[Rfam]
RNA sequence: CCCAUGACUGCGUGAUGAUAUAAAUGUUGGUAGGGACAUCUGAAUCAAUGUGAAGAAACGCCAACUUUUCUGACUUCAUGGG
Numbered sequence: 001c002c003c004a005u006g007a008c009u010g011c012g013u014g015a016u017g018a019u020a021u022a023a024a025u026g027u028u029g030g031u032a033g034g035g036a037c038a039u040c041u042g043a044a045u046c047a048a049u050g051u052g053a054a055g056a057a058a059c060g061c062c063a064a065c066u067u068u069u070c071u072g073a074c075u076u077c078a079u080g081g082g
Stems, first nucleotide, its partner, number of pairs: 001082005

Small nucleolar RNA SNORD74: an 82-nucleotide sequence from Collichthys lucidus. NCBI's taxonomy places the organism under Eukaryota, Actinopterygii, Teleostei, Neoteleostei, Collichthys. It scores 53 bits against the family's covariance model. Its Rfam clan is "SNORD74 clan". It is annotated as a C/D-box small nucleolar RNA. Pairs were carried over by alignment from the consensus structure, which was predicted with PFOLD.